[Rfam]
Nucleotides: 102
Base pairs, nucleotide, nucleotide: 019087020086021085022084023083024082025081030048031047032046033045034044035043058078059077060076061075062074063073064072
Number, partner (000 for none) and nucleotide at each position: 001000a002000a003000a004000u005000u006000a007000a008000a009000u010000u011000u012000g013000u014000u015000a016000a017000u018000a019087g020086c021085u022084c023083a024082u025081a026000u027000a028000u029000a030048c031047c032046c033045u034044g035043g036000a037000a038000u039000a040000a041000g042000g043035c044034u045033a046032g047031g048030g049000a050000g051000u052000c053000u054000c055000u056000a057000c058078c059077g060076g061075a062074u063073a064072a065000c066000c067000g068000u069000a070000a071000a072064u073063u074062a075061u076060c077059u078058g079000a080000c081025u082024a083023u084022g085021a086020g087019u088000g089000g090000a091000a092000a093000u094000u095000a096000a097000c098000u099000c100000g101000u102000a
This 102-nucleotide RNA from Gottschalkia purinilytica belongs to the Rfam family "Purine riboswitch aptamer".
Taxonomically the source falls in Gottschalkia (Bacteria, Bacillota, Tissierellia, Gottschalkiaceae).
Its family is annotated with purine nucleobase biosynthetic process in the Gene Ontology.
A search with the family's covariance model found it, with a score of 86 bits.